[Rfam]
RNA sequence: GGACUCCCACUGAGAAAGAUUUAGCAAAUCACUCAUAGCGAGUCUUGGACAACACAGGGUAACCGGUGUUGUUAAGCGUAGACAGCAAGCUAGUAGGCCGAAAGCGAAAGUUGAAGGGAUUGAGCCUCGGAAUCCCAAUCGGGAAGGUUGAUACUUUGAACCGAGUAGAAAACAACACUACUUUAGUCGUUAUGCGAGAAUAUAGUAGCUUCCCCGGGGUCAGUGACCA
Numbered sequence: 001g002g003a004c005u006c007c008c009a010c011u012g013a014g015a016a017a018g019a020u021u022u023a024g025c026a027a028a029u030c031a032c033u034c035a036u037a038g039c040g041a042g043u044c045u046u047g048g049a050c051a052a053c054a055c056a057g058g059g060u061a062a063c064c065g066g067u068g069u070u071g072u073u074a075a076g077c078g079u080a081g082a083c084a085g086c087a088a089g090c091u092a093g094u095a096g097g098c099c100g101a102a103a104g105c106g107a108a109a110g111u112u113g114a115a116g117g118g119a120u121u122g123a124g125c126c127u128c129g130g131a132a133u134c135c136c137a138a139u140c141g142g143g144a145a146g147g148u149u150g151a152u153a154c155u156u157u158g159a160a161c162c163g164a165g166u167a168g169a170a171a172a173c174a175a176c177a178c179u180a181c182u183u184u185a186g187u188c189g190u191u192a193u194g195c196g197a198g199a200a201u202a203u204a205g206u207a208g209c210u211u212c213c214c215c216g217g218g219g220u221c222a223g224u225g226a227c228c229a
Stems, first nucleotide, its partner, number of pairs: 011035004018030004022197001024195002038086002042083004046078002048073008057064002121223001122221001124220006141214006147173003152167004178208005184202002187199002
Dot-bracket structure: ..........((((...(((([.[[.)))).))))..((..((((((((((((((.((....)).))))))))...)).)))).))..................................((.((((((...........(((((((((..((((........))))...)))....(((((.((.((.....]].])).)).)))))))))))))))))).)......
This 229-nucleotide RNA sequence from Bacillus sp. 1NLA3E belongs to the Rfam family "Group II catalytic intron D1-D4-6". The source organism's lineage runs through Bacteria, Bacillati, Bacilli, Bacillaceae and Bacillus. The pairing is the family consensus, mapped onto this sequence. The literature on the family includes a 2001 paper in Trends Genet by Bonen and Vogel, "The ins and outs of group II introns".